RNA sequence: AGAAGACCUCCCGUAUCUAAGGCUGAAGCAAACGCAGAUUGUAAAAAAGCGGGAUGACGUUGAUACCGUCACCCCGC
Numbered sequence: 001a002g003a004a005g006a007c008c009u010c011c012c013g014u015a016u017c018u019a020a021g022g023c024u025g026a027a028g029c030a031a032a033c034g035c036a037g038a039u040u041g042u043a044a045a046a047a048a049g050c051g052g053g054a055u056g057a058c059g060u061u062g063a064u065a066c067c068g069u070c071a072c073c074c075c076g077c
Stems, first nucleotide, its partner, number of pairs: 005040001008037002022029002049077004055071005
Shown here is a 77-nucleotide sequence from Pseudomonas sp. FeS53a, a member of the family "Pseudomonas sRNA P31". The source organism's lineage runs through Bacteria, Pseudomonadati, Gammaproteobacteria, Pseudomonadaceae and Pseudomonas. A search with the family's covariance model found it, with a score of 62 bits. The base pairs follow the family's consensus structure, which was predicted with CMfinder.